Shown here is a 223-nucleotide RNA sequence from Lepisosteus oculatus, a member of the family "Small nucleolar RNA SNORA73 family". Rfam classes the family as an H/ACA-box small nucleolar RNA. Rfam's curators write: U17 (SNORA73A and SNORA73B) also known as E1 belongs to the H/ACA class of small nucleolar RNAs (snoRNAs). Clan: snR30-U17 clan. A reference for the family is Cervelli et al. (2002), "Comparative Structure Analysis of Vertebrate U17 Small Nucleolar RNA (snoRNA)", J Mol Evol. A search with the family's covariance model found it, with a score of 203 bits.

Nucleotides: 223
Base pairs, nucleotide, nucleotide: 001109002108003107004106005105006104007103008044009043010042011041012040014036015035019028020027021026047101048100049099050098056094057093058092059091060088062086063085065081066080154214155213156212157211158210159209170201171200172199173198174197175196179188180187181186
Number, partner (000 for none) and nucleotide at each position: 001109c002108c003107a004106a005105c006104g007103u008044g009043g010042a011041c012040a013000u014036c015035c016000u017000g018000u019028g020027a021026g022000g023000u024000u025000g026021c027020u028019c029000u030000c031000a032000u033000a034000u035015g036014g037000c038000u039000c040012u041011g042010u043009u044008c045000g046000u047101g048100u049099g050098g051000c052000g053000u054000a055000u056094g057093g058092g059091a060088g061000c062086g063085u064000a065081g066080c067000a068000c069000u070000u071000c072000a073000c074000a075000g076000u077000g078000c079000c080066g081065u082000g083000a084000c085063g086062u087000a088060c089000a090000g091059u092058c093057c094056c095000g096000u097000u098050c099049c100048a101047c102000g103007a104006c105005g106004u107003u108002g109001g110000a111000g112000a113000g114000c115000a116000a117000g118000u119000u120000u121000g122000u123000c124000c125000c126000c127000g128000g129000c130000c131000u132000u133000c134000u135000g136000g137000c138000u139000g140000g141000u142000g143000a144000g145000g146000a147000c148000a149000g150000c151000g152000u153000u154214c155213u156212g157211u158210a159209u160000a161000u162000u163000c164000c165000u166000a167000u168000g169000c170201c171200u172199u173198c174197c175196c176000a177000g178000a179188g180187u181186c182000c183000u184000u185000g186181g187180g188179c189000a190000g191000u192000u193000a194000c195000u196175g197174g198173g199172g200171a201170g202000g203000a204000a205000a206000a207000c208000c209159a210158u211157g212156c213155a214154g215000u216000g217000c218000a219000c220000a221000u222000u223000a
The family has 66 seed sequences and 2,326 matches in Rfam 15.1.